[Rfam]
RNA sequence: GCCAAGGUAAAAGUGUAUUAAGAUGGAAAGGGAAACUAGGACCAUGACGUGGUUUUUGUAAGAAUGCUAGCAGGGUACACACAAGAAGAGUAAUUGCACUGGAUUAGAAAUACUGGGGUGGGCCUCUUUUUAAUGUCCAGUGUCCUUUGUCUUAACAUUUGGUGCAAUGUGU
Numbered sequence: 001g002c003c004a005a006g007g008u009a010a011a012a013g014u015g016u017a018u019u020a021a022g023a024u025g026g027a028a029a030g031g032g033a034a035a036c037u038a039g040g041a042c043c044a045u046g047a048c049g050u051g052g053u054u055u056u057u058g059u060a061a062g063a064a065u066g067c068u069a070g071c072a073g074g075g076u077a078c079a080c081a082c083a084a085g086a087a088g089a090g091u092a093a094u095u096g097c098a099c100u101g102g103a104u105u106a107g108a109a110a111u112a113c114u115g116g117g118g119u120g121g122g123c124c125u126c127u128u129u130u131u132a133a134u135g136u137c138c139a140g141u142g143u144c145c146u147u148u149g150u151c152u153u154a155a156c157a158u159u160u161g162g163u164g165c166a167a168u169g170u171g172u
Stems, first nucleotide, its partner, number of pairs: 014074001016072001018070003023065002032056002035053004040048001042046001095166009115143001117141001119139004
The family of this 172-nucleotide RNA sequence from Oryctolagus cuniculus is "Small nucleolar RNA SNORA81". Rfam 15.1 lists 1,161 matches to the family in 643 species. Rfam's curators put it in the seed alignment. Gene Ontology terms of the family: nucleolus and RNA processing. On this family, see Gu et al., Nucleic Acids Res 2005: "A novel experimental approach for systematic identification of box H/ACA snoRNAs from eukaryotes".